[Rfam]
Nucleotides: 180
Stems, first nucleotide, its partner, number of pairs: 011172008021162007034149001056127002059124003065118004073110001
Number, partner (000 for none) and nucleotide at each position: 001000a002000u003000a004000g005000a006000u007000a008000a009000g010000a011172g012171a013170g014169c015168u016167u017166u018165u019000u020000u021162c022161g023160g024159u025158c026157c027156a028000c029000u030000u031000a032000u033000a034149g035000a036000u037000a038000g039000u040000a041000a042000u043000a044000u045000g046000a047000u048000u049000u050000a051000a052000u053000u054000a055000g056127u057126u058000a059124c060123c061122g062000a063000c064000u065118c066117a067116u068115u069000c070000a071000u072000c073110c074000a075000a076000a077000u078000a079000c080000u081000g082000a083000g084000u085000u086000a087000u088000g089000a090000g091000c092000u093000a094000a095000g096000a097000u098000u099000a100000c101000c102000c103000a104000g105000u106000a107000a108000a109000u110073g111000a112000a113000u114000g115068a116067g117066u118065g119000a120000u121000g122061c123060g124059g125000g126057a127056g128000a129000c130000a131000a132000a133000u134000u135000a136000a137000a138000u139000c140000u141000u142000a143000a144000a145000c146000u147000u148000c149034c150000u151000a152000u153000c154000a155000u156027u157026g158025g159024a160023c161022u162021g163000a164000a165018g166017g167016g168015a169014g170013c171012u172011c173000c174000c175000u176000u177000u178000a179000c180000u